[Rfam]
Annotation: The family of this 68-nucleotide RNA from Nocardioides sp. Root614 is "ASdes TB sRNA". The match comes from Rfam's covariance-model search (45 bits).
RNA sequence: AGCUCGUCGGGGUCCACACCCCGGGUGACCAGGAGGUAGUCGCGGAUGCAGAAGGCAUGACGGCCCUC
Number, nucleotide and partner (000 for none) at each position: 001a000002g000003c000004u063005c062006g061007u000008c059009g058010g000011g030012g029013u028014c000015c027016a026017c025018a000019c000020c000021c000022c000023g000024g000025g017026u016027g015028a013029c012030c011031a000032g000033g000034a000035g056036g000037u054038a000039g000040u052041c051042g049043c048044g000045g000046a000047u000048g043049c042050a000051g041052a040053a000054g037055g000056c035057a000058u009059g008060a000061c006062g005063g004064c000065c000066c000067u000068c000
Source information:
For this family Rfam cites "Identification of small RNAs in Mycobacterium tuberculosis" (Arnvig and Young, Mol Microbiol, 2009).